[Rfam]
RNA sequence: AAAGAAAACACAGCGCCAGAACUCGUAUUGCGCGAGUUGACGAGGACAAGGAGAAUCGAAAAUUCGGCGGAUGCCUUGCGGUACGGUACUACCGGAAAUGUUGAAAAAAACAAAAAGCGAUUUUUGAACAAAUUCAACAGGGUACCUUG
Numbered sequence: 001a002a003a004g005a006a007a008a009c010a011c012a013g014c015g016c017c018a019g020a021a022c023u024c025g026u027a028u029u030g031c032g033c034g035a036g037u038u039g040a041c042g043a044g045g046a047c048a049a050g051g052a053g054a055a056u057c058g059a060a061a062a063u064u065c066g067g068c069g070g071a072u073g074c075c076u077u078g079c080g081g082u083a084c085g086g087u088a089c090u091a092c093c094g095g096a097a098a099u100g101u102u103g104a105a106a107a108a109a110a111c112a113a114a115a116a117g118c119g120a121u122u123u124u125u126g127a128a129c130a131a132a133u134u135c136a137a138c139a140g141g142g143u144a145c146c147u148u149g
Base pairs, nucleotide, nucleotide: 020038021037022036023035024034025033026032047078048077049076050075051074056067057066058065059064079094080093081092082091083090099139100138101137102136103135104134111126112125113124114123115122116121
A member of the RNA family "glmS glucosamine-6-phosphate activated ribozyme aptamer" from Caproicibacter fermentans, 149 nucleotides long. By type it is a riboswitch. This entry contains a glucosamine-6-phosphate activated ribozyme that is found in the mRNA for GlmS. GlmS is an enzyme that uses fructose-6-phosphate and glutamine to generate glucosamine-6-phosphate. Taxonomically the source falls in Caproicibacter (Bacteria, Bacillati, Eubacteriales, Acutalibacteraceae).